This 111-nucleotide RNA sequence from Arabis alpina belongs to the Rfam family "Small nucleolar RNA snoR99". The base pairs follow the family's consensus structure, which was predicted with WAR. A reference for the family is Marker et al. (2002), "Experimental RNomics: identification of 140 candidates for small non-messenger RNAs in the plant Arabidopsis thaliana", Curr Biol. By type it is an H/ACA-box small nucleolar RNA. Rfam links the family to the GO terms RNA processing and nucleolus. NCBI's taxonomy places the organism under Eukaryota, Streptophytina, Spermatophyta, Pentapetalae, Arabis.
RNA sequence: AUGCUAUAUAGGAAUUGAAUAAAGUCCCUUUUAACAUCUAAAUCCAUCUGUUUCACUUUGUCAGCAGUCUUGAACUUGGUUUCUUGCUGAUCAUUUCAUGAUGGGAAAUCU
Numbered sequence: 001a002u003g004c005u006a007u008a009u010a011g012g013a014a015u016u017g018a019a020u021a022a023a024g025u026c027c028c029u030u031u032u033a034a035c036a037u038c039u040a041a042a043u044c045c046a047u048c049u050g051u052u053u054c055a056c057u058u059u060g061u062c063a064g065c066a067g068u069c070u071u072g073a074a075c076u077u078g079g080u081u082u083c084u085u086g087c088u089g090a091u092c093a094u095u096u097c098a099u100g101a102u103g104g105g106a107a108a109u110c111u
Stems, first nucleotide, its partner, number of pairs: 043105006060091008